Rfam assigns this 75-nucleotide RNA sequence from Callorhinchus milii to the family "Small nucleolar RNA SNORD63".
The sequence is in the family's curated seed alignment.
The organism belongs to Callorhinchus, within Eukaryota.
snoRNA U63 is found in both humans and mice.
RNA sequence: GUGCUGUGAUGUUAUCAUAUCAACACAUCAUUCUGAUGCAAAACCAUGGAGAGAAUCAUCCAAUAACUGAGCACA
Numbered sequence: 001g002u003g004c005u006g007u008g009a010u011g012u013u014a015u016c017a018u019a020u021c022a023a024c025a026c027a028u029c030a031u032u033c034u035g036a037u038g039c040a041a042a043a044c045c046a047u048g049g050a051g052a053g054a055a056u057c058a059u060c061c062a063a064u065a066a067c068u069g070a071g072c073a074c075a
Stems, first nucleotide, its partner, number of pairs: 001074004